Small nucleolar RNA SNORD18: a 76-nucleotide RNA sequence from Dichanthelium oligosanthes. The organism belongs to Dichanthelium, within Eukaryota.
RNA sequence: GGGAUAUGAUGAAGAACCUUUGGUCCGUGUUUCUGAUCAUCCGUGAUGAGUAAAUCACUCUUAUGAUUCUGAUCCC
Numbered sequence: 001g002g003g004a005u006a007u008g009a010u011g012a013a014g015a016a017c018c019u020u021u022g023g024u025c026c027g028u029g030u031u032u033c034u035g036a037u038c039a040u041c042c043g044u045g046a047u048g049a050g051u052a053a054a055u056c057a058c059u060c061u062u063a064u065g066a067u068u069c070u071g072a073u074c075c076c
Stems, first nucleotide, its partner, number of pairs: 001076004
Dot-bracket structure: ((((....................................................................))))

A reference for the family is Prislei et al. (1993), "Two different snoRNAs are encoded in introns of amphibian and human L1 ribosomal protein genes", Nucleic Acids Res.
By type it is a C/D-box small nucleolar RNA.
Its family is annotated with RNA processing and nucleolus in the Gene Ontology.